[Rfam]
RNA sequence: UUUGAUCGAGCCCAGCCACAGGGGCUCGGUGCGGUCCUGUCCAUAGGUGGCCAAAAUCGCCUGGGCCUC
Dot-bracket structure: .............((((.....))))(....((....((.(((....))).))....))...)......
Shown here is a 69-nucleotide RNA sequence from Mycobacterium marinum, a member of the family "ASpks TB sRNA". Pairs were carried over by alignment from the consensus structure, which is taken from published work. A search with the family's covariance model found it, with a score of 66 bits. NCBI's taxonomy places the organism under Bacteria, Actinomycetes, Mycobacteriales, Mycobacteriaceae, Mycobacterium marinum. For this family Rfam cites "Identification of small RNAs in Mycobacterium tuberculosis" (Arnvig and Young, Mol Microbiol, 2009). The family's RNA type in Rfam is antisense RNA.